RNA sequence: UAAACAAUAACGCUUAAUUUCUCCUUCCAGGGAGAAAACGGGGGAACCAACGCGAACCGGUCGCAUGGCUGCAUGGACCGCACGCAGGGGGUGAAUCCGGGGAUUUGUGCCCCCGGUAGGGUUUUCUCUCUAACCCGAAUCCGACAGCUAACCUCGUCAGCGGAAGAAGGAGAGAUG
Numbered sequence: 001u002a003a004a005c006a007a008u009a010a011c012g013c014u015u016a017a018u019u020u021c022u023c024c025u026u027c028c029a030g031g032g033a034g035a036a037a038a039c040g041g042g043g044g045a046a047c048c049a050a051c052g053c054g055a056a057c058c059g060g061u062c063g064c065a066u067g068g069c070u071g072c073a074u075g076g077a078c079c080g081c082a083c084g085c086a087g088g089g090g091g092u093g094a095a096u097c098c099g100g101g102g103a104u105u106u107g108u109g110c111c112c113c114c115g116g117u118a119g120g121g122u123u124u125u126c127u128c129u130c131u132a133a134c135c136c137g138a139a140u141c142c143g144a145c146a147g148c149u150a151a152c153c154u155c156g157u158c159a160g161c162g163g164a165a166g167a168a169g170g171a172g173a174g175a176u177g
Stems, first nucleotide, its partner, number of pairs: 011162004018037008038157006048088001089142003097116006119136004
The record is a 177-nucleotide sequence from Paenibacillus sp. MY03, which matches "c-di-AMP riboswitch aptamer (ydaO/yuaA leader)" in Rfam. Taxonomically the source falls in Paenibacillus (Bacteria, Bacillati, Bacillota, Caryophanales). The match comes from Rfam's covariance-model search (90 bits).